[Rfam]
RNA: TPP riboswitch aptamer (THI element)
Organism: Legionella longbeachae
RNA sequence: AUUGUACAUUAGGGGUGCCUGUUUCACUAUUUUGGCUGAGAGGAUCCACCAACCCUUUGAACCUGAUCUCAUUAGUCUGAGCGGAGGAAAAUGUGUCUAUUGUUAU
Numbered sequence: 001a002u003u004g005u006a007c008a009u010u011a012g013g014g015g016u017g018c019c020u021g022u023u024u025c026a027c028u029a030u031u032u033u034g035g036c037u038g039a040g041a042g043g044a045u046c047c048a049c050c051a052a053c054c055c056u057u058u059g060a061a062c063c064u065g066a067u068c069u070c071a072u073u074a075g076u077c078u079g080a081g082c083g084g085a086g087g088a089a090a091a092u093g094u095g096u097c098u099a100u101u102g103u104u105a106u
Base pairs, nucleotide, nucleotide: 006094007093008092009091010090011056012055013054014053017036018035019034021032043049062087063086064085068081069080070079071078